[Rfam]
RNA sequence: GAAACAGGAACCCGGCACCGCGCAUGCGGGUGAGAUCGGGACCGCCGCCGGGCUAGCGACGGCUACC
Numbered sequence: 001g002a003a004a005c006a007g008g009a010a011c012c013c014g015g016c017a018c019c020g021c022g023c024a025u026g027c028g029g030g031u032g033a034g035a036u037c038g039g040g041a042c043c044g045c046c047g048c049c050g051g052g053c054u055a056g057c058g059a060c061g062g063c064u065a066c067c
Stems, first nucleotide, its partner, number of pairs: 011040005018029004044063004049058002